Shown here is a 150-nucleotide RNA from Populus tomentosa, a member of the family "small nucleolar RNA snoR134". Pairs were carried over by alignment from the consensus structure, which was predicted with RNAalifold. The literature on the family includes a 2009 paper in Nucleic Acids Res by Chen and Wu, "Mining small RNA sequencing data: a new approach to identify small nucleolar RNAs in Arabidopsis". Rfam 15.1 lists 792 matches to the family in 228 species. The family's RNA type in Rfam is H/ACA-box small nucleolar RNA. Lineage of the source: Eukaryota > Spermatophyta > rosids > Saliceae > Populus.
RNA sequence: CUGAAUGAUGCCUCCUGGGCUUCACUUGUUACAUUUCACUGAAGUAGAAAGCCCCAAUGCUCGUGCUAAAACACCUUUCGUUUAGUGUUGCAGUUUAGCCUCUUGUACCUCUUUUCACGGCUUAUCUGUGUCAGAUCAACGACAACAUCU
Numbered sequence: 001c002u003g004a005a006u007g008a009u010g011c012c013u014c015c016u017g018g019g020c021u022u023c024a025c026u027u028g029u030u031a032c033a034u035u036u037c038a039c040u041g042a043a044g045u046a047g048a049a050a051g052c053c054c055c056a057a058u059g060c061u062c063g064u065g066c067u068a069a070a071a072c073a074c075c076u077u078u079c080g081u082u083u084a085g086u087g088u089u090g091c092a093g094u095u096u097a098g099c100c101u102c103u104u105g106u107a108c109c110u111c112u113u114u115u116c117a118c119g120g121c122u123u124a125u126c127u128g129u130g131u132c133a134g135a136u137c138a139a140c141g142a143c144a145a146c147a148u149c150u
Base pairs, nucleotide, nucleotide: 003066005064006063007062008061010060011059017054018053019052020051021050022048023047024045025044026043078142079141080140081139082138086133087132089130090129091128092127093126098121099120100119
It scores 110 bits against the family's covariance model.